[Rfam]
RNA sequence: UAAUAGUAAUGAAAGGGAUGAUGGGUGGACAAUGAAGAAUUAAUCUUAUUUUUAAAAUUUGAAAUUGCAUAUUUCAAAUCAAACGAAAUAGGAUUAGUCUGCCCAUUUUUCUAUAAUCUCUAGAGCUAUUGUAAUAAUAGCUUAUUUGAGCAUCUAAGAAUAGGACUAAUCCUUCCAAAAUGACUGGGAGGAUUUUUUA
Numbered sequence: 001u002a003a004u005a006g007u008a009a010u011g012a013a014a015g016g017g018a019u020g021a022u023g024g025g026u027g028g029a030c031a032a033u034g035a036a037g038a039a040u041u042a043a044u045c046u047u048a049u050u051u052u053u054a055a056a057a058u059u060u061g062a063a064a065u066u067g068c069a070u071a072u073u074u075c076a077a078a079u080c081a082a083a084c085g086a087a088a089u090a091g092g093a094u095u096a097g098u099c100u101g102c103c104c105a106u107u108u109u110u111c112u113a114u115a116a117u118c119u120c121u122a123g124a125g126c127u128a129u130u131g132u133a134a135u136a137a138u139a140g141c142u143u144a145u146u147u148g149a150g151c152a153u154c155u156a157a158g159a160a161u162a163g164g165a166c167u168a169a170u171c172c173u174u175c176c177a178a179a180a181u182g183a184c185u186g187g188g189a190g191g192a193u194u195u196u197u198u199a
Base pairs, nucleotide, nucleotide: 015111016110017109018108022105023104024103025102028099029098030097041096042095043094044093045092046091047090048089049088050087051086052085057079058078059077060076061075062074063073064072065071118148125141126140127139128138129137130136131135168194169193170192171191172190173189174188175187176186177185
This 199-nucleotide RNA from Aquibacillus halophilus belongs to the Rfam family "Bacillus sRNA ncr1575". Lineage of the source: Bacteria > Bacilli > Caryophanales > Bacillaceae > Aquibacillus. The match comes from Rfam's covariance-model search (144 bits). On this family, see Irnov et al., Nucleic Acids Res 2010: "Identification of regulatory RNAs in Bacillus subtilis". The family's RNA type in Rfam is small RNA.